A member of the RNA family "eL15-Euryarchaeota ribosomal protein leader", 117 nucleotides long.
[Rfam]
RNA sequence: CCUGUUUCAGCACAGGUCGGGAUGUGAACCGGGAGGGUGAGAUCGAAGAUCUCGCAGCCCUCCACGAGAUUUCCAAUCUCGCCGGGGCCUUCGACCCCGCAUGGUUUGAACCACGCA
Numbered sequence: 001c002c003u004g005u006u007u008c009a010g011c012a013c014a015g016g017u018c019g020g021g022a023u024g025u026g027a028a029c030c031g032g033g034a035g036g037g038u039g040a041g042a043u044c045g046a047a048g049a050u051c052u053c054g055c056a057g058c059c060c061u062c063c064a065c066g067a068g069a070u071u072u073c074c075a076a077u078c079u080c081g082c083c084g085g086g087g088c089c090u091u092c093g094a095c096c097c098c099g100c101a102u103g104g105u106u107u108g109a110a111c112c113a114c115g116c117a
Base pairs, nucleotide, nucleotide: 001016002015003014004013005012019112020111026107027106028105029104030103
Description: By type it is a cis-regulatory leader. The literature on the family includes a 2020 paper in BMC Microbiol by Eckert and Weinberg, "Discovery of 20 novel ribosomal leader candidates in bacteria and archaea".